[Rfam]
Shown here is a 130-nucleotide sequence from Portunus trituberculatus, a member of the family "Small Cajal body specific RNA 8". The family's consensus secondary structure is taken from published work. Taxonomically the source falls in Portunus (Eukaryota, Ecdysozoa, Pleocyemata, Portuninae). Rfam describes the family as follows. scaRNAs are a specific class of small nuclear RNAs which localise to the Cajal bodies and guide the modification of RNA polymerase II transcribed spliceosomal RNAs U1, U2, U4, U5 and U12. U92 belong to the H/ACA box class of guide RNAs as it has the predicted hairpin-hinge-hairpin-tail structure, conserved H/ACA-box motifs and is found associated with GAR1.

RNA sequence: GCCGGGGAAGAUUCGCAGGUGUGGUUUUAGAUUACCACACUCGCCACAAUUACCCGGAGAACAAUGUUUGCCUUCUGAUGACCAUGUUGCGCUAAGGUAUUCAGCAUGGACAGAUACGGGGCACACACAC
Dot-bracket structure: .(((((........((.(...((((........))))...).))........)))))...........((((((.......(((..(((............)))..)))........)))))).......
Numbered sequence: 001g002c003c004g005g006g007g008a009a010g011a012u013u014c015g016c017a018g019g020u021g022u023g024g025u026u027u028u029a030g031a032u033u034a035c036c037a038c039a040c041u042c043g044c045c046a047c048a049a050u051u052a053c054c055c056g057g058a059g060a061a062c063a064a065u066g067u068u069u070g071c072c073u074u075c076u077g078a079u080g081a082c083c084a085u086g087u088u089g090c091g092c093u094a095a096g097g098u099a100u101u102c103a104g105c106a107u108g109g110a111c112a113g114a115u116a117c118g119g120g121g122c123a124c125a126c127a128c129a130c
Stems, first nucleotide, its partner, number of pairs: 002057005015044002018041001022037004069123006082109003087104003
Annotation
On this family, see Huttenhofer et al., EMBO J 2001: "RNomics: an experimental approach that identifies 201 candidates for novel, small, non-messenger RNAs in mouse".